[Rfam]
This 139-nucleotide RNA sequence from Escherichia coli belongs to the Rfam family "Yersinia sRNA 155(RyfD)". The base pairs follow the family's consensus structure. The literature on the family includes a 2016 paper in Proc Natl Acad Sci U S A by Righetti et al., "Temperature-responsive in vitro RNA structurome of Yersinia pseudotuberculosis". From the family's description: The sRNA was identified by and is confirmed to have a stable secondary structure by using genome-wide structure probing at different temperatures. The function is unknown.

RNA sequence: CAAGACGAUCCGGUACGCGUGAUUUUCUUUUCACAUUAAUCUGGUCAAUAACCUUGAAUAAUUGAGGGAUGACCUCAUUUAAUCUCCAGUAGCAACUUUGAUCCGUUAUGGGAGGAGUUAUGCGUCUGGAUCGUCUUAC
Numbered sequence: 001c002a003a004g005a006c007g008a009u010c011c012g013g014u015a016c017g018c019g020u021g022a023u024u025u026u027c028u029u030u031u032c033a034c035a036u037u038a039a040u041c042u043g044g045u046c047a048a049u050a051a052c053c054u055u056g057a058a059u060a061a062u063u064g065a066g067g068g069a070u071g072a073c074c075u076c077a078u079u080u081a082a083u084c085u086c087c088a089g090u091a092g093c094a095a096c097u098u099u100g101a102u103c104c105g106u107u108a109u110g111g112g113a114g115g116a117g118u119u120a121u122g123c124g125u126c127u128g129g130a131u132c133g134u135c136u137u138a139c
Stems, first nucleotide, its partner, number of pairs: 002137011015125005021119003024044002029039001031038001052067006068079004083115005089109003